[Rfam]
Record summary: The family of this 82-nucleotide RNA from Coriobacterium glomerans is "aspS RNA". Rfam's curators put it in the seed alignment. By type it is a cis-regulatory element. The organism belongs to Coriobacterium glomerans, within Bacteria.
RNA sequence: GUCGGGUUGCGCGGUCUACGCAGACUCGGCAGUCUGUCGGUUGCCGCCCGCACCGACACGGGGCGGCGCAGAUGAAGGAGGA
Numbered sequence: 001g002u003c004g005g006g007u008u009g010c011g012c013g014g015u016c017u018a019c020g021c022a023g024a025c026u027c028g029g030c031a032g033u034c035u036g037u038c039g040g041u042u043g044c045c046g047c048c049c050g051c052a053c054c055g056a057c058a059c060g061g062g063g064c065g066g067c068g069c070a071g072a073u074g075a076a077g078g079a080g081g082a
Stems, first nucleotide, its partner, number of pairs: 001030008009021003032073006043067007